[Rfam]
RNA sequence: CUUAUGCGGCAGCAUAGAAUCGAAUUGAGGGAGAACAUUUACGAUUCUACCCCUUUUCACUUUAGUGCUGCUUUGGAG
Numbered sequence: 001c002u003u004a005u006g007c008g009g010c011a012g013c014a015u016a017g018a019a020u021c022g023a024a025u026u027g028a029g030g031g032a033g034a035a036c037a038u039u040u041a042c043g044a045u046u047c048u049a050c051c052c053c054u055u056u057u058c059a060c061u062u063u064a065g066u067g068c069u070g071c072u073u074u075g076g077a078g
Base pairs, nucleotide, nucleotide: 008072009071010070011069012068013067014066015065017063018062019061022058023057024056027053029052030051031050032048033047034046035045036043
Annotation: Rfam assigns this 78-nucleotide RNA from Haemonchus placei to the family "mir-5890 microRNA precursor family". Pairs were carried over by alignment from the consensus structure, which was predicted with RNAalifold.